A. fumigatus sRNA Afu_254: a 163-nucleotide sequence from Aspergillus fumigatus.
It is annotated as a small RNA.
Rfam 15.1 lists 185 matches to the family in 142 species.
Rfam's curators put it in the seed alignment.
The base pairs follow the family's consensus structure, which was predicted with WAR.
NCBI's taxonomy places the organism under Eukaryota, Ascomycota, saccharomyceta, Aspergillaceae, Aspergillus fumigatus.
The literature on the family includes a 2008 paper in Nucleic Acids Res by Jochl et al., "Small ncRNA transcriptome analysis from Aspergillus fumigatus suggests a novel mechanism for regulation of protein synthesis".
RNA sequence: AUACUAAGCCUCAUAUCAACUGAACAGUCUAUCUUCUUCAAGGAACGCUUCGUUCACCAUCAACUCAAUCAAAAUGACUCCCUGCUCCGCAACACCUGCUCCUGCUCCAGCGACUGCAACGGCUGCUCCUGCUCCUCUUGCGGUCACUAAAUGGCACAUCAAG
Numbered sequence: 001a002u003a004c005u006a007a008g009c010c011u012c013a014u015a016u017c018a019a020c021u022g023a024a025c026a027g028u029c030u031a032u033c034u035u036c037u038u039c040a041a042g043g044a045a046c047g048c049u050u051c052g053u054u055c056a057c058c059a060u061c062a063a064c065u066c067a068a069u070c071a072a073a074a075u076g077a078c079u080c081c082c083u084g085c086u087c088c089g090c091a092a093c094a095c096c097u098g099c100u101c102c103u104g105c106u107c108c109a110g111c112g113a114c115u116g117c118a119a120c121g122g123c124u125g126c127u128c129c130u131g132c133u134c135c136u137c138u139u140g141c142g143g144u145c146a147c148u149a150a151a152u153g154g155c156a157c158a159u160c161a162a163g
Stems, first nucleotide, its partner, number of pairs: 083112004096104001116141003125132002